[Rfam]
A member of the RNA family "permuted transfer-messenger RNA" from Oricola thermophila, 214 nucleotides long.
Pairs were carried over by alignment from the consensus structure, which is taken from published work.
Gene Ontology term of the family: RNA catabolic process.
About the family: Bacterial tmRNA, also known as 10Sa RNA or SsrA, is named for its dual tRNA and mRNA-like properties. Its role is to liberate the mRNA from a stalled ribosome. To accomplish this part of the tmRNA is used as a reading frame that ends in a translation stop signal. The broken mRNA is replaced in the ribosome by the tmRNA and translation of the tmRNA leads to addition of a proteolysis tag to the incomplete protein enabling recognition by a protease.
NCBI's taxonomy places the organism under Bacteria, Alphaproteobacteria, Hyphomicrobiales, Ahrensiaceae, Oricola.
It is annotated as a non-coding RNA gene.
RNA sequence: GGCAAUAAACUGGCGAUGCAAUAAGCCAAUCGGACCCGGGGGCGGUACCCGGCGCCUCCACCACAAACGGCCGCAAGGGGCCGGUUGUGAUGGGGGCGAAACAGGAUCGACGAUGGUGUAAAGAUCGUUCUUUUGCCCGGCAUGAUACCGCCGUUAUCGGGUCACCUUAAUAGUUGCAAACGACAACUAUGCAGAGGCACGUCUCGCUGCCUAA
Number, nucleotide and partner (000 for none) at each position: 001g137002g136003c135004a134005a133006u000007a000008a000009a000010c000011u000012g000013g000014c127015g126016a125017u124018g000019c000020a000021a000022u000023a000024a000025g000026c116027c115028a114029a000030u113031c112032g111033g000034a000035c000036c052037c051038g050039g049040g048041g000042g000043c000044g000045g000046u000047a000048c040049c039050c038051g037052g036053c098054g097055c096056c095057u094058c093059c092060a000061c000062c000063a000064c000065a000066a000067a000068c000069g000070g000071c000072c000073g000074c000075a000076a000077g000078g000079g000080g000081c000082c000083g000084g000085u000086u000087g000088u000089g000090a000091u000092g059093g058094g057095g056096g055097c054098g053099a000100a000101a000102c000103a000104g000105g000106a000107u000108c000109g000110a000111c032112g031113a030114u028115g027116g026117u000118g000119u000120a000121a000122a000123g000124a017125u016126c015127g014128u000129u000130c000131u000132u000133u005134u004135g003136c002137c001138c153139g152140g151141c150142a000143u000144g000145a000146u000147a000148c000149c000150g141151c140152c139153g138154u000155u000156a000157u000158c000159g000160g000161g000162u000163c000164a000165c000166c000167u000168u000169a000170a000171u000172a000173g000174u000175u000176g000177c000178a000179a000180a000181c000182g000183a000184c000185a000186a000187c000188u000189a000190u000191g000192c000193a000194g000195a000196g000197g000198c000199a000200c000201g000202u000203c000204u000205c000206g000207c000208u000209g000210c000211c000212u000213a000214a000